The record is a 200-nucleotide sequence from Paenibacillus sp. NEAU-GSW1, which matches "glmS glucosamine-6-phosphate activated ribozyme aptamer" in Rfam. It is annotated as a riboswitch. NCBI's taxonomy places the organism under Bacteria, Bacillati, Bacillota, Paenibacillaceae, Paenibacillus.
[Rfam]
RNA sequence: AACGUUUCAUAAGCGCCAGAGCUUGCGUGAUGAACAGAUUUUUUUUCGCGGUAUGGGAAGAGAAUCGUUCAUACGGGAAGCUGACGAGGUGAAGGUGUUCGGAACAUUCGGCGGGGACCUUCCGGUAUAGCAUGCCAACCGAAAGCCGUUACGCAAAUAGAUUGGGCGACCGAUCUGACAAACGUGCGGCGGGCUUGCAG
Number, nucleotide and partner (000 for none) at each position: 001a000002a000003c000004g000005u000006u000007u000008c000009a000010u000011a000012a000013g000014c000015g000016c000017c000018a000019g000020a082021g081022c080023u079024u078025g000026c076027g000028u073029g000030a000031u000032g000033a000034a000035c000036a000037g000038a000039u000040u000041u000042u000043u000044u000045u000046u000047c000048g000049c000050g000051g000052u000053a000054u000055g000056g000057g000058a000059a000060g000061a000062g000063a000064a000065u000066c000067g000068u000069u000070c000071a000072u000073a028074c000075g000076g026077g000078a024079a023080g022081c021082u020083g000084a000085c000086g000087a000088g000089g000090u000091g122092a121093a120094g119095g118096u000097g000098u000099u111100c110101g109102g108103a000104a000105c000106a000107u000108u102109c101110g100111g099112c000113g000114g000115g000116g000117a000118c095119c094120u093121u092122c091123c141124g140125g139126u138127a000128u000129a000130g000131c000132a000133u000134g000135c000136c000137a000138a126139c125140c124141g123142a000143a000144a000145g190146c189147c188148g187149u186150u000151a000152c000153g000154c000155a000156a000157a000158u000159a176160g175161a174162u173163u172164g171165g170166g000167c000168g000169a000170c165171c164172g163173a162174u161175c160176u159177g000178a000179c000180a000181a000182a000183c000184g000185u000186g149187c148188g147189g146190c145191g000192g000193g000194c000195u000196u000197g000198c000199a000200g000